[Rfam]
RNA sequence: GAUAAUGGGGGUGGGAACCCCCCACGCCGAAAGCCCAAGGGUUCCCGGGCCAUGCCAGUCAGCCCGGGGUCAGUCGGUUCCUAAGGCGAGGCCGAAAGGCGCAGCCGACGGGAAACCGGUUCACAUUCCGGUACCUGGGUGUGCGCGUGAUGGAGGGACGCAGGAGGGUAGGCGAGCCGGGUGAUGGAUAUCCCGGUCCAAGGUUGUAGGCGGGCCGCCCAGGCAAAUCCGGGGGGCCUCAACGUCGAGAGCCGAUGGCGAGAGGCUAGCCUCAUAAAGUCGCCGAUCCCACGCUGCCGAGAAAAGCUUCUAAGCAUAGCACACGCAGACCGUACCCAAACCGACACAGGUGGGCGGGUGGAGAACACCAAGGCGCA
Dot-bracket structure: .....((((((.......))))))((((....((((..((...((((((...((.....)).))))))......((((.((...(((...(((....)))...)))...))...(((((........)))))..(((.((((((..((...((((....((((..(((..(((((((((((..........))))))((..((((...(((..(((.(((.((.....))))).)))......)))...))))...))...(.((......)).)....)))))...)))...)))).........))))...))...)))))).)))))))..))....((......)).)))).((((.....))))..))))..
Shown here is a 377-nucleotide part of an RNA from uncultured bacterium HF0770_45N15, a member of the family "Bacterial large subunit ribosomal RNA".